The record is a 223-nucleotide sequence from Fusarium mundagurra, which matches "Group I catalytic intron" in Rfam.
Its family is annotated with Group I intron splicing in the Gene Ontology.
[Rfam]
RNA sequence: AGAAGCAUUUAAUUCUGUAGAGCAUAUUGCAUAAUGUGUUCAUUAAAUCGGGCUAAUUGCUGGAAAAUCUUGAUUAAGACAAUCAGCAGGGAACCUACUGAUAUGUUAAUUAUAUGUCCAGUAAAAUCUUCAGAGACUACACGCCUGACAUCUGACUUAAGUGCACUAUUCCGUAACUUUAAUACAGAUGAUGAUAUAGUCCAAUCUCUACUGUAAAGUAGAG
Numbered sequence: 001a002g003a004a005g006c007a008u009u010u011a012a013u014u015c016u017g018u019a020g021a022g023c024a025u026a027u028u029g030c031a032u033a034a035u036g037u038g039u040u041c042a043u044u045a046a047a048u049c050g051g052g053c054u055a056a057u058u059g060c061u062g063g064a065a066a067a068u069c070u071u072g073a074u075u076a077a078g079a080c081a082a083u084c085a086g087c088a089g090g091g092a093a094c095c096u097a098c099u100g101a102u103a104u105g106u107u108a109a110u111u112a113u114a115u116g117u118c119c120a121g122u123a124a125a126a127u128c129u130u131c132a133g134a135g136a137c138u139a140c141a142c143g144c145c146u147g148a149c150a151u152c153u154g155a156c157u158u159a160a161g162u163g164c165a166c167u168a169u170u171c172c173g174u175a176a177c178u179u180u181a182a183u184a185c186a187g188a189u190g191a192u193g194a195u196a197u198a199g200u201c202c203a204a205u206c207u208c209u210a211c212u213g214u215a216a217a218g219u220a221g222a223g
Stems, first nucleotide, its partner, number of pairs: 005025001008022003012018002028038003048148004053143001058088006068079004089129002100118005133202001135201005151188004157182005208221005